[Rfam]
RNA sequence: CUUCCCAUUUGACUACCAUAUUUUCUCCUAAUAAUAAAUUUUAGUGGCUGUGUUUAUGGAGAGAUUAUAAUUGCCAUGAUCUGAAGAGGAAGGAUUUGUGUCCUCUUCCUAUAUGAAAUGGAUGAGCAGAAAAAA
Numbered sequence: 001c002u003u004c005c006c007a008u009u010u011g012a013c014u015a016c017c018a019u020a021u022u023u024u025c026u027c028c029u030a031a032u033a034a035u036a037a038a039u040u041u042u043a044g045u046g047g048c049u050g051u052g053u054u055u056a057u058g059g060a061g062a063g064a065u066u067a068u069a070a071u072u073g074c075c076a077u078g079a080u081c082u083g084a085a086g087a088g089g090a091a092g093g094a095u096u097u098g099u100g101u102c103c104u105c106u107u108c109c110u111a112u113a114u115g116a117a118a119u120g121g122a123u124g125a126g127c128a129g130a131a132a133a134a135a
Stems, first nucleotide, its partner, number of pairs: 005059003016047004074121003091110004